[Rfam]
This 74-nucleotide sequence from Proteiniclasticum aestuarii belongs to the Rfam family "RAGATH-18 RNA".

RNA sequence: ACUGUGGACUGUACAGGAACUUGUGAGUAGCAGUUCAGGAAACUGAGGCGAAAGCAUACAGGAAGAAGCAGUAA
Numbered sequence: 001a002c003u004g005u006g007g008a009c010u011g012u013a014c015a016g017g018a019a020c021u022u023g024u025g026a027g028u029a030g031c032a033g034u035u036c037a038g039g040a041a042a043c044u045g046a047g048g049c050g051a052a053a054g055c056a057u058a059c060a061g062g063a064a065g066a067a068g069c070a071g072u073a074a
Stems, first nucleotide, its partner, number of pairs: 001072005009061005022056003030049002035046004

Lineage of the source: Bacteria > Bacillati > Bacillota > Eubacteriales > Proteiniclasticum. Rfam classes the family as a small RNA.